The record is a 101-nucleotide RNA from Paenibacillus sp. 7541, which matches "Purine riboswitch aptamer" in Rfam.

RNA sequence: UAUCAUAAUAGUACAUCUUCUCGUAUAUGUGCAGGGAUUGGCCUGCAUGUUUCUACCCGAUCACCGGAAAUGAUUGGACUACGGGAUAUUGCAGCGCGGCG
Numbered sequence: 001u002a003u004c005a006u007a008a009u010a011g012u013a014c015a016u017c018u019u020c021u022c023g024u025a026u027a028u029g030u031g032c033a034g035g036g037a038u039u040g041g042c043c044u045g046c047a048u049g050u051u052u053c054u055a056c057c058c059g060a061u062c063a064c065c066g067g068a069a070a071u072g073a074u075u076g077g078a079c080u081a082c083g084g085g086a087u088a089u090u091g092c093a094g095c096g097c098g099g100c101g
Stems, first nucleotide, its partner, number of pairs: 019086007029048007057077007

The family's consensus secondary structure is taken from published work.
A search with the family's covariance model found it, with a score of 72 bits.